The record is an 82-nucleotide RNA from Hamiltosporidium magnivora, which matches "tRNA" in Rfam.

[Rfam]
RNA sequence: GCUGGUGUGGCCGAGUGGUUAAGGCGUUAGUCUCGAAAACUAAUUCGCUCUGCGAGCAGAGGUUCGAAUCCUCUCGCCAGCG
Numbered sequence: 001g002c003u004g005g006u007g008u009g010g011c012c013g014a015g016u017g018g019u020u021a022a023g024g025c026g027u028u029a030g031u032c033u034c035g036a037a038a039a040c041u042a043a044u045u046c047g048c049u050c051u052g053c054g055a056g057c058a059g060a061g062g063u064u065c066g067a068a069u070c071c072u073c074u075c076g077c078c079a080g081c082g
Stems, first nucleotide, its partner, number of pairs: 001081007010025003027043005058074005
Dot-bracket structure: (((((((..(((..........))).(((((.......)))))..............(((((.......)))))))))))).
Rfam classes the family as a transfer RNA.